[Rfam]
RNA sequence: GGGCCCGUAGCUCAGUGGUAGAGCAACUGACUUUUAAUCAGUGGGUCGCUGGUUCGAUCCCAGCCGGGCUCA
Numbered sequence: 001g002g003g004c005c006c007g008u009a010g011c012u013c014a015g016u017g018g019u020a021g022a023g024c025a026a027c028u029g030a031c032u033u034u035u036a037a038u039c040a041g042u043g044g045g046u047c048g049c050u051g052g053u054u055c056g057a058u059c060c061c062a063g064c065c066g067g068g069c070u071c072a
Base pairs, nucleotide, nucleotide: 001071002070003069004068005067006066007065010024011023012022013021026042027041028040029039030038048064049063050062051061052060

tRNA: a 72-nucleotide RNA sequence from Paracoccus alkenifer. The source organism's lineage runs through Bacteria, Pseudomonadati, Rhodobacterales, Paracoccaceae and Paracoccus. The match comes from Rfam's covariance-model search (74 bits). The family's consensus secondary structure is taken from published work. Rfam 15.1 lists 5,335,975 matches to the family in 14,413 species.